Source information: Shown here is an 88-nucleotide RNA from Salirhabdus euzebyi, a member of the family "c-di-GMP-I riboswitch aptamer".

[Rfam]
RNA sequence: UAUUGAUAAAGGCACACUACCUGAAAAGGUAGGCCGCAAAGCGUUGGGACUAAGGUUGUUAAUCAGCUAUGUUUGCCAUGCUACCAAU
Numbered sequence: 001u002a003u004u005g006a007u008a009a010a011g012g013c014a015c016a017c018u019a020c021c022u023g024a025a026a027a028g029g030u031a032g033g034c035c036g037c038a039a040a041g042c043g044u045u046g047g048g049a050c051u052a053a054g055g056u057u058g059u060u061a062a063u064c065a066g067c068u069a070u071g072u073u074u075g076c077c078a079u080g081c082u083a084c085c086a087a088u
Base pairs, nucleotide, nucleotide: 012037013036017032018031019030020029021028022027040082041081042080043079045078046077047076048073049072050071055067056066057065058064
Notes: The match comes from Rfam's covariance-model search (78 bits). The family's consensus secondary structure is taken from published work. Rfam describes the family as follows. GEMM was predicted in a large-scale screen for bacterial structured RNA regulatory elements.